[Rfam]
RNA sequence: GUUGGGAACUCUGGAGGCAGCGGUUCAUCGAUCUGUUCCCUGAAUAGCUCAACAUAAAGCAACAGAAAUCGAUCGAUAAACCUCUGCAUCCAGCGCUCUUAAA
Numbered sequence: 001g002u003u004g005g006g007a008a009c010u011c012u013g014g015a016g017g018c019a020g021c022g023g024u025u026c027a028u029c030g031a032u033c034u035g036u037u038c039c040c041u042g043a044a045u046a047g048c049u050c051a052a053c054a055u056a057a058a059g060c061a062a063c064a065g066a067a068a069u070c071g072a073u074c075g076a077u078a079a080a081c082c083u084c085u086g087c088a089u090c091c092a093g094c095g096c097u098c099u100u101a102a103a
Base pairs, nucleotide, nucleotide: 013091014090015089018086019085020084022082023081024080025079027077028076029075030074031073032072033071036068037067
Dot-bracket structure: ............(((..(((.((((.(((((((..((.............................))..))))))).)))).)))..)))............